[Rfam]
RNA: Plastid-psbA-1 3UTR RNA
RNA sequence: UCAAAGUUCCAUCUACAAAUGAAUAAAACUUUGAUUUUGGUGUAUACUGGGUUAUUAAGUAUAAAGGAUCAAUAAUCAAUUUCUUGUUCCAGAAAAAAGUUUGAUAUUGCUCAUUU
Numbered sequence: 001u002c003a004a005a006g007u008u009c010c011a012u013c014u015a016c017a018a019a020u021g022a023a024u025a026a027a028a029c030u031u032u033g034a035u036u037u038u039g040g041u042g043u044a045u046a047c048u049g050g051g052u053u054a055u056u057a058a059g060u061a062u063a064a065a066g067g068a069u070c071a072a073u074a075a076u077c078a079a080u081u082u083c084u085u086g087u088u089c090c091a092g093a094a095a096a097a098a099g100u101u102u103g104a105u106a107u108u109g110c111u112c113a114u115u116u
Stems, first nucleotide, its partner, number of pairs: 008023001010021003063116003067112002070109005078101002081098002084095002